[Rfam]
RNA sequence: AAAAAGUUAAAAGGGGCCACAGCGGUAGCGUUUACAGCGCAGCCCCUUUCAAAUGCAUGCCUCUGUGAAUCCUGUU
Number, nucleotide and partner (000 for none) at each position: 001a000002a000003a000004a000005a000006g000007u000008u000009a000010a000011a000012a000013g046014g045015g044016g043017c042018c000019a000020c000021a076022g075023c074024g073025g072026u000027a070028g040029c039030g038031u000032u000033u000034a000035c000036a000037g000038c030039g029040c028041a000042g017043c016044c015045c014046c013047u000048u000049u000050c065051a064052a000053a062054u000055g060056c000057a000058u000059g000060c055061c000062u053063c000064u051065g050066u000067g000068a000069a000070u027071c000072c025073u024074g023075u022076u021